Source information
A member of the RNA family "Small nucleolar SNORD12/SNORD106" from Chanos chanos, 91 nucleotides long. It is annotated as a C/D-box small nucleolar RNA. Rfam 15.1 lists 2,264 matches to the family in 650 species. Its Rfam clan is "SNORD12 clan".

RNA sequence: AGUGGUGUAAAUGAUGACUGAUCUUUUUUCCCCAGCAGAUCGACCUUGUUGACCCCCUAUAUUUUAAAGCCAAAUAGUCUGAUGCACCCGU
Dot-bracket structure: (..((((((.........................................................................))))))..)